[Rfam]
RNA sequence: AACGCAAGCCGCCUUAUCGUUCCGUCGCCUAGACGGGAAGGAAAGUCCGGGCAACGCAGAGCAUCCUGCUUCCUAACGGGAAGGGUUCCGGCACCUGCCGGAAUACAGCCAGUGCCACAGAAAACAAACCGCCACGGCGCAAGCCGGGGUAAGGGUGAAAAGGUGCGGUAAGAGCGCACCGGCCCGCUGGUGACAGGGGGCGCAUGGUAAACCUCAGGAGUUGAAAGACCAAAUAGGUCCCUCUUCCCCCUUUUGGGGGGCCAGAGUUGCUCGCUCAAAUUCCGGCCACUGGCCGGCAAGAGAGGGAUGGGUAGGUCGAUAGAGCCCGGUGGUGACACCGGGCCCAGAUAAAUGAUAGGGACCCAAAAUUCAUUUUGGGAUACAGAACCCGGCUUACAGGCUUGCGUUUACU
Number, nucleotide and partner (000 for none) at each position: 001a408002a407003c406004g405005c404006a403007a402008g401009c400010c399011g397012c360013c359014u358015u357016a356017u355018c354019g000020u038021u037022c036023c035024g034025u033026c032027g000028c000029c000030u000031a000032g026033a025034c024035g023036g022037g021038a020039a000040g000041g000042a000043a395044a394045g393046u000047c392048c391049g390050g389051g388052c223053a222054a221055c220056g000057c000058a000059g000060a290061g289062c000063a000064u219065c218066c217067u216068g215069c083070u082071u081072c080073c079074u000075a000076a000077c000078g000079g073080g072081a071082a070083g069084g106085g104086u103087u102088c101089c100090g099091g098092c097093a000094c000095c000096u000097g092098c091099c090100g089101g088102a087103a086104u085105a000106c084107a214108g213109c000110c000111a000112g212113u211114g208115c207116c206117a000118c000119a000120g000121a000122a000123a000124a000125c000126a000127a000128a000129c154130c153131g150132c149133c148134a000135c146136g145137g144138c143139g000140c000141a000142a000143g138144c137145c136146g135147g000148g133149g132150u131151a000152a000153g130154g129155g000156u000157g000158a000159a000160a000161a000162g180163g179164u178165g177166c176167g175168g000169u000170a000171a000172g000173a000174g000175c167176g166177c165178a164179c163180c162181g203182g201183c200184c199185c198186g000187c196188u195189g194190g000191u000192g000193a000194c189195a188196g187197g000198g185199g184200g183201c182202g000203c181204a000205u000206g116207g115208u114209a000210a000211a113212c112213c108214u107215c068216a067217g066218g065219a064220g055221u054222u053223g052224a000225a000226a000227g317228a316229c315230c314231a000232a000233a000234u000235a000236g000237g308238u307239c306240c305241c304242u303243c000244u000245u000246c000247c000248c000249c000250c000251u000252u000253u000254u000255g000256g000257g000258g000259g000260g000261c000262c000263a000264g000265a000266g000267u000268u000269g000270c000271u000272c000273g000274c000275u000276c000277a000278a000279a000280u000281u000282c296283c295284g294285g293286c292287c000288a000289c061290u060291g000292g286293c285294c284295g283296g282297c000298a000299a000300g000301a000302g000303a242304g241305g240306g239307a238308u237309g000310g000311g000312u000313a000314g230315g229316u228317c227318g000319a000320u000321a000322g000323a000324g343325c342326c341327c340328g339329g338330u337331g336332g000333u000334g000335a000336c331337a330338c329339c328340g327341g326342g325343c324344c000345c000346a000347g000348a000349u000350a000351a000352a000353u000354g018355a017356u016357a015358g014359g013360g012361a000362c000363c000364c000365a000366a000367a000368a000369u000370u000371c000372a000373u000374u000375u000376u000377g000378g000379g000380a000381u000382a000383c000384a000385g000386a000387a000388c051389c050390c049391g048392g047393c045394u044395u043396a000397c011398a000399g010400g009401c008402u007403u006404g005405c004406g003407u002408u001409u000410a000411c000412u000

This 412-nucleotide sequence from Cesiribacter andamanensis belongs to the Rfam family "Bacterial RNase P class A".